A member of the RNA family "7SK RNA" from Alectura lathami, 322 nucleotides long. Rfam's curators write: 7SK was discovered as an abundant small nuclear RNA in the mid-70s but a possible function has only recently been suggested. Two independent studies have found that 7SK RNA binds the CDK9/cyclin T complex (known as elongation factor P-TEFb). P-TEFb activates transcription by phosphorylating the C-terminal domain of RNA polymerase II. This process is negatively regulated by the 7SK RNP. The secondary structure of 7SK RNA shown here was proposed by Wasserman and Steitz on the basis of chemical modification and enzymatic cleavage experiments.

[Rfam]
RNA sequence: AGAUGCGAAGGCGAUCUGGCUGCGACAUCUGUCACCCCAUUCAGGAUUGAUUCUGCUGAUCUAGCUGGCUAGGCGGGUGUCCCCUUCCUCCCUCACUCGUCCAUGUGCGUCCCUCCCAAAGCUCCUUGCUCAGUUAAAGAGGACGACCUCCCCCAAUAGAGAUGUACCGUUCAUCGGUCAAGGGUAUACGGUAGAUGCGUUCCCCUGCUAGAACCUCCAAACAAGCUCAAGGUCCAUUCAUAGGAGAACAGAAGGUAGUUAAGCUUCCAAGACUGCAGACACAUCCAAGUGAGGCACUGCAUGGUGCAGUCUGCCAUUGAAA
Number, nucleotide and partner (000 for none) at each position: 001a000002g101003a100004u000005g096006c000007g094008a093009a000010g091011g090012c000013g087014a086015u000016c000017u000018g084019g083020c000021u000022g000023c000024g081025a080026c079027a078028u077029c076030u075031g074032u073033c072034a000035c068036c067037c064038c000039a062040u000041u059042c058043a000044g000045g000046a000047u000048u000049g000050a000051u000052u000053c000054u000055g000056c000057u000058g042059a041060u000061c000062u039063a000064g037065c000066u000067g036068g035069c000070u000071a000072g033073g032074c031075g030076g029077g028078u027079g026080u025081c024082c000083c019084c018085u000086u014087c013088c000089u000090c011091c010092c000093u008094c007095a000096c005097u000098c000099g000100u003101c002102c000103a000104u000105g000106u000107g000108c000109g000110u000111c164112c000113c161114u160115c159116c133117c000118a000119a130120a000121g129122c128123u000124c000125c000126u000127u000128g122129c121130u119131c000132a000133g116134u156135u155136a000137a000138a000139g000140a000141g152142g151143a000144c000145g000146a000147c000148c000149u000150c000151c142152c141153c000154c000155a135156a134157u000158a000159g115160a114161g113162a000163u000164g111165u000166a000167c000168c000169g000170u000171u000172c000173a000174u000175c000176g000177g000178u000179c000180a000181a000182g000183g000184g000185u000186a000187u000188a000189c000190g000191g000192u000193a000194g264195a000196u262197g000198c000199g000200u258201u257202c000203c255204c254205c000206u252207g000208c000209u000210a000211g000212a000213a000214c000215c246216u245217c244218c243219a000220a000221a241222c000223a000224a238225g237226c000227u000228c000229a000230a000231g000232g000233u000234c000235c000236a000237u225238u224239c000240a000241u221242a000243g218244g217245a216246g215247a000248a000249c000250a000251g000252a206253a000254g204255g203256u000257a201258g200259u000260u000261a000262a196263g000264c194265u000266u000267c000268c000269a000270a000271g000272a000273c000274u000275g000276c000277a000278g000279a000280c000281a000282c000283a000284u000285c000286c000287a000288a000289g000290u000291g317292a000293g315294g314295c313296a310297c309298u308299g307300c306301a000302u000303g000304g000305u000306g300307c299308a298309g297310u296311c000312u000313g295314c294315c293316a000317u291318u000319g000320a000321a000322a000